[Rfam]
RNA sequence: AAUGUUCUACAACGGCUUCCUGACGUAGGGCAAUUCUUUUUUGGAGCA
Dot-bracket structure: ...(((((((..(([[[.[[))..)))))))...........]]]]].
Numbered sequence: 001a002a003u004g005u006u007c008u009a010c011a012a013c014g015g016c017u018u019c020c021u022g023a024c025g026u027a028g029g030g031c032a033a034u035u036c037u038u039u040u041u042u043g044g045a046g047c048a
Stems, first nucleotide, its partner, number of pairs: 004031007013022002015047003019044002
Rfam assigns this 48-nucleotide RNA sequence to the family "SAM/SAH riboswitch aptamer".